[Rfam]
RNA sequence: UUCAACUGUGAUGAGCUUAUAGACCUGUAAUGAUUUGCGGCUAUGAUCGCAAACAUAGUUGAACAUCCAAGGGACUAAGUUGUG
Numbered sequence: 001u002u003c004a005a006c007u008g009u010g011a012u013g014a015g016c017u018u019a020u021a022g023a024c025c026u027g028u029a030a031u032g033a034u035u036u037g038c039g040g041c042u043a044u045g046a047u048c049g050c051a052a053a054c055a056u057a058g059u060u061g062a063a064c065a066u067c068c069a070a071g072g073g074a075c076u077a078a079g080u081u082g083u084g
Base pairs, nucleotide, nucleotide: 003082004081005080006079

The record is an 84-nucleotide RNA from Vigna radiata, which matches "Small nucleolar RNA SNORD25" in Rfam. Gene Ontology terms of the family: RNA processing and nucleolus. Rfam 15.1 lists 985 matches to the family in 241 species. The organism belongs to Vigna radiata, within Eukaryota. The family's RNA type in Rfam is C/D-box small nucleolar RNA. The literature on the family includes a 2001 paper in Nucleic Acids Res by Qu et al., "Identification of 10 novel snoRNA gene clusters from Arabidopsis thaliana".